[Rfam]
RNA sequence: ACCAAUUGAACAAACACGGAUCUGUGUCCAGCGAUCCUGAGCAUGGAACUGUUUCUCUUCACGGAGGGGCUGCUUCUGUGUCUCGGUUGAUUGCUGGACAGUUCGACGACUUAAGGAGCCAUUCCCUUGUGGAUGGUUUUUAUUUCCGGUCGACAGAUCUCAGAUCGAAUGCUGGCAUUAGGAUUACUUGGUCUUGAGCUCCCGAUAGGUGAGCUCGGCUUGAGGGCCUAGUAGCCAGCGGCGUCAUAUUCCUGAUCCCUUUACCGAUUUGGCCGUCGGCUUGUGAGGUUAGGGAAAAACCAUGACUAGCCAACAUAU
Dot-bracket structure: .................((((((((((((((.(((((((((((.(((.(.(((.((((....)))).))).).)))..)).)))))..)))).)))))).......(((((..(((.(((..............))).)))......)))))))))))))..........((....((((((.......((((..((((((((....)).))))))))))......)))))).))....((((((((........(((((..(((.....((((...)))).....))).)))))......)))))..))).......
Overview:
This 318-nucleotide sequence from Aspergillus fumigatus belongs to the Rfam family "A. fumigatus sRNA Afu_309". Pairs were carried over by alignment from the consensus structure, which was predicted with WAR. The family's RNA type in Rfam is small RNA. For this family Rfam cites "Small ncRNA transcriptome analysis from Aspergillus fumigatus suggests a novel mechanism for regulation of protein synthesis" (Jochl et al., Nucleic Acids Res, 2008). Taxonomically the source falls in Aspergillus fumigatus (Eukaryota, Dikarya, Pezizomycotina, leotiomyceta).